[Rfam]
RNA sequence: UAAUAUUAUUGGCAAACUUAUCGAAAGGUAAGGACGCAAAGCCAUGGGUCUAAAGGGUGAAAGCCCGAUGAUUGCCAGGUUGCAUUG
Numbered sequence: 001u002a003a004u005a006u007u008a009u010u011g012g013c014a015a016a017c018u019u020a021u022c023g024a025a026a027g028g029u030a031a032g033g034a035c036g037c038a039a040a041g042c043c044a045u046g047g048g049u050c051u052a053a054a055g056g057g058u059g060a061a062a063g064c065c066c067g068a069u070g071a072u073u074g075c076c077a078g079g080u081u082g083c084a085u086u087g
Stems, first nucleotide, its partner, number of pairs: 012037002017032006040081004045077003048072003055066004
Dot-bracket structure: ...........((...((((((....))))))...))..((((.((((((....((((....))))...)))..)))))))......